[Rfam]
RNA sequence: CUCCCCGAAAACUAUUUAGGUAGUGCCUCGUGUCUCACUCUCGGGGGUAGAGCACUGUUUCGGCUAGGGGGCCACACCGGCUUACCAAACCGAUGCAAACUCCGAAUACCGAGAAGUGCAAUCACGGGAGACAGACGGCGGGUGCUAACGUUCGUCGUCAAGAGGGAAACAACCCAGACCGCCAGCUAAGGUCCCAAAAUCAUGGCUCAGUGGGAAACGAUGUGGGAAGGCAUAGACAGUCAGGAGGUUGGCUUAGAAGCAGCCAUCCUUUAAAGAAAGCGUAAUAGCUCACUGAUCAAGUCAGCCUGCGCGGAAGAUGUAACGGGGCUUAAGUCAUGUACCGAAGCUGCGGGUGCGUACACCUUGAAGGUGUUGCGCACGGUAGGGGAGCGUUCCGUAAGCCGUCGAAGGUGUAUCGAGAGGUAUGCUGGAGGUAUCGGAAGUGCGAAU
Numbered sequence: 001c002u003c004c005c006c007g008a009a010a011a012c013u014a015u016u017u018a019g020g021u022a023g024u025g026c027c028u029c030g031u032g033u034c035u036c037a038c039u040c041u042c043g044g045g046g047g048u049a050g051a052g053c054a055c056u057g058u059u060u061c062g063g064c065u066a067g068g069g070g071g072c073c074a075c076a077c078c079g080g081c082u083u084a085c086c087a088a089a090c091c092g093a094u095g096c097a098a099a100c101u102c103c104g105a106a107u108a109c110c111g112a113g114a115a116g117u118g119c120a121a122u123c124a125c126g127g128g129a130g131a132c133a134g135a136c137g138g139c140g141g142g143u144g145c146u147a148a149c150g151u152u153c154g155u156c157g158u159c160a161a162g163a164g165g166g167a168a169a170c171a172a173c174c175c176a177g178a179c180c181g182c183c184a185g186c187u188a189a190g191g192u193c194c195c196a197a198a199a200u201c202a203u204g205g206c207u208c209a210g211u212g213g214g215a216a217a218c219g220a221u222g223u224g225g226g227a228a229g230g231c232a233u234a235g236a237c238a239g240u241c242a243g244g245a246g247g248u249u250g251g252c253u254u255a256g257a258a259g260c261a262g263c264c265a266u267c268c269u270u271u272a273a274a275g276a277a278a279g280c281g282u283a284a285u286a287g288c289u290c291a292c293u294g295a296u297c298a299a300g301u302c303a304g305c306c307u308g309c310g311c312g313g314a315a316g317a318u319g320u321a322a323c324g325g326g327g328c329u330u331a332a333g334u335c336a337u338g339u340a341c342c343g344a345a346g347c348u349g350c351g352g353g354u355g356c357g358u359a360c361a362c363c364u365u366g367a368a369g370g371u372g373u374u375g376c377g378c379a380c381g382g383u384a385g386g387g388g389a390g391c392g393u394u395c396c397g398u399a400a401g402c403c404g405u406c407g408a409a410g411g412u413g414u415a416u417c418g419a420g421a422g423g424u425a426u427g428c429u430g431g432a433g434g435u436a437u438c439g440g441a442a443g444u445g446c447g448a449a450u
Stems, first nucleotide, its partner, number of pairs: 001390006011024005026130001027128006035121001036118003039114006050103001051101002056097003060093004067086002069083005134159010164175003179352004184348003190342003199339001201338006218312002222309005229302003239296005245269003250264003270274001275290001279288002353380007391445001393442005401435003410429008
Background: Rfam assigns this 450-nucleotide part of an RNA from Candidatus Kentrum sp. G to the family "Bacterial large subunit ribosomal RNA".